[Rfam]
RNA sequence: UAUUAGGUUGGUACACAAGUAAUUGCAGUUUUUGCCAUUAAUUUUAAUAGCAAAAACAGCAAUUACUUGUGCACCAACCUAAUA
Numbered sequence: 001u002a003u004u005a006g007g008u009u010g011g012u013a014c015a016c017a018a019g020u021a022a023u024u025g026c027a028g029u030u031u032u033u034g035c036c037a038u039u040a041a042u043u044u045u046a047a048u049a050g051c052a053a054a055a056a057c058a059g060c061a062a063u064u065a066c067u068u069g070u071g072c073a074c075c076a077a078c079c080u081a082a083u084a
Stems, first nucleotide, its partner, number of pairs: 001084012014071013028057008037048004
RNA: mir-548 microRNA precursor family